[Rfam]
RNA sequence: GGGGGUGCACUGGCUUCGACGGGGGUUGCAAAGUCGCCUGGCGCAUGCCGAGGGGGUAGCUUUCCUCGUAAAUCCAGCUGCAAAACUCUAGUUGCCAACGACGACAACUACGCUCUCGCCGCUUAAGGCGUAAGCCCCGAAACUGCUUGUGUCCGUGCUCGCAGCGUAGGGUCAUUAUCACGGAAUCGCCGGGGGUGGCCGCCUGUCAGCCCCUAGUUAACCCAAAGCAGGCUGGUCCUUGGGUGCGCUUUGCACACCGUGCUGCCCCGGGACGAGAUCUAACGGUGAGCUAAGCAUGUAGUGCCGGGGAUGGAGUGCCUUCGGACGGCGGUUCGAUUCCGCCCACCUCCACCA
Numbered sequence: 001g002g003g004g005g006u007g008c009a010c011u012g013g014c015u016u017c018g019a020c021g022g023g024g025g026u027u028g029c030a031a032a033g034u035c036g037c038c039u040g041g042c043g044c045a046u047g048c049c050g051a052g053g054g055g056g057u058a059g060c061u062u063u064c065c066u067c068g069u070a071a072a073u074c075c076a077g078c079u080g081c082a083a084a085a086c087u088c089u090a091g092u093u094g095c096c097a098a099c100g101a102c103g104a105c106a107a108c109u110a111c112g113c114u115c116u117c118g119c120c121g122c123u124u125a126a127g128g129c130g131u132a133a134g135c136c137c138c139g140a141a142a143c144u145g146c147u148u149g150u151g152u153c154c155g156u157g158c159u160c161g162c163a164g165c166g167u168a169g170g171g172u173c174a175u176u177a178u179c180a181c182g183g184a185a186u187c188g189c190c191g192g193g194g195g196u197g198g199c200c201g202c203c204u205g206u207c208a209g210c211c212c213c214u215a216g217u218u219a220a221c222c223c224a225a226a227g228c229a230g231g232c233u234g235g236u237c238c239u240u241g242g243g244u245g246c247g248c249u250u251u252g253c254a255c256a257c258c259g260u261g262c263u264g265c266c267c268c269g270g271g272a273c274g275a276g277a278u279c280u281a282a283c284g285g286u287g288a289g290c291u292a293a294g295c296a297u298g299u300a301g302u303g304c305c306g307g308g309g310a311u312g313g314a315g316u317g318c319c320u321u322c323g324g325a326c327g328g329c330g331g332u333u334c335g336a337u338u339c340c341g342c343c344c345a346c347c348u349c350c351a352c353c354a
Stems, first nucleotide, its partner, number of pairs: 001350007020323007033311003037308007044298005049068005056081006115134002118131002122127001136171003140167001143164004152184006188217002191214006201232005235273005241267004246261003252290002256286003327343005

Background
Shown here is a 354-nucleotide RNA sequence from Aerolutibacter daejeonensis, a member of the family "transfer-messenger RNA". NCBI's taxonomy places the organism under Bacteria, Gammaproteobacteria, Lysobacteraceae, Aerolutibacter, Aerolutibacter daejeonensis. For this family Rfam cites "Phylogenetic analysis of tmRNA secondary structure" (Williams and Bartel, RNA, 1996). Rfam links the family to the GO term RNA catabolic process. By type it is a non-coding RNA gene.